[Rfam]
ASdes TB sRNA: a 68-nucleotide sequence from Antrihabitans auranticaus.

RNA sequence: AGCUGAACGGGAUCGACGCCGCGAGUGACGACCAGGUAGUCGCGGAUCGCGAUGCCGUGGCGGUUUUC
Numbered sequence: 001a002g003c004u005g006a007a008c009g010g011g012a013u014c015g016a017c018g019c020c021g022c023g024a025g026u027g028a029c030g031a032c033c034a035g036g037u038a039g040u041c042g043c044g045g046a047u048c049g050c051g052a053u054g055c056c057g058u059g060g061c062g063g064u065u066u067u068c
Base pairs, nucleotide, nucleotide: 004063008059009058013028016026017025035056036055037054038053040052041051042050043049044048
The family's consensus secondary structure is taken from published work. Rfam classes the family as a small RNA. The match comes from Rfam's covariance-model search (69 bits).